The record is a 360-nucleotide sequence from Lamprobacter modestohalophilus, which matches "transfer-messenger RNA" in Rfam. For this family Rfam cites "Phylogenetic analysis of tmRNA secondary structure" (Williams and Bartel, RNA, 1996). The source organism's lineage runs through Bacteria, Pseudomonadati, Chromatiales, Chromatiaceae and Lamprobacter. By type it is a non-coding RNA gene. It scores 225 bits against the family's covariance model.
RNA sequence: GGGGGCGACAUGGCUUCGACGUGGGUCACAAAACCCGAGGUGCAUGCCGAGGUGCGGGUUACCUCGUAAAUCCAACCGCAAAUCUAUAGUUGCCAACGACGACAACUACGCUCUCGCUGCUUAAACCCAGUGGGCCUCACACCGUCACUUGCCUGUGGGCGGCGGAUUCGUGGGGUAACAUCACACAGGAUCGCGAUAACGGGGGCCUGGACCGAGAUCGCUAAAACCUAAUUCGGGAUCGCUGACCAAUCGCCCUGCCCUUCGGGCGGUGGAAGGCUAAAAACAGUAGAACGGGCUAAGCAUGUAGUACCAACGGCGGAGGGCUUGCGGACGCGGGUUCGAUUCCCGCCGCCUCCACCA
Numbered sequence: 001g002g003g004g005g006c007g008a009c010a011u012g013g014c015u016u017c018g019a020c021g022u023g024g025g026u027c028a029c030a031a032a033a034c035c036c037g038a039g040g041u042g043c044a045u046g047c048c049g050a051g052g053u054g055c056g057g058g059u060u061a062c063c064u065c066g067u068a069a070a071u072c073c074a075a076c077c078g079c080a081a082a083u084c085u086a087u088a089g090u091u092g093c094c095a096a097c098g099a100c101g102a103c104a105a106c107u108a109c110g111c112u113c114u115c116g117c118u119g120c121u122u123a124a125a126c127c128c129a130g131u132g133g134g135c136c137u138c139a140c141a142c143c144g145u146c147a148c149u150u151g152c153c154u155g156u157g158g159g160c161g162g163c164g165g166a167u168u169c170g171u172g173g174g175g176u177a178a179c180a181u182c183a184c185a186c187a188g189g190a191u192c193g194c195g196a197u198a199a200c201g202g203g204g205g206c207c208u209g210g211a212c213c214g215a216g217a218u219c220g221c222u223a224a225a226a227c228c229u230a231a232u233u234c235g236g237g238a239u240c241g242c243u244g245a246c247c248a249a250u251c252g253c254c255c256u257g258c259c260c261u262u263c264g265g266g267c268g269g270u271g272g273a274a275g276g277c278u279a280a281a282a283a284c285a286g287u288a289g290a291a292c293g294g295g296c297u298a299a300g301c302a303u304g305u306a307g308u309a310c311c312a313a314c315g316g317c318g319g320a321g322g323g324c325u326u327g328c329g330g331a332c333g334c335g336g337g338u339u340c341g342a343u344u345c346c347c348g349c350c351g352c353c354u355c356c357a358c359c360a
Stems, first nucleotide, its partner, number of pairs: 001356007020329008035316003040311001043304005048066005053080005059074001113134007135175006142165005148159002152189006193221005206236002209233001241277003246272003250268001253266003257296004261291003333349005
The family's consensus secondary structure is taken from published work.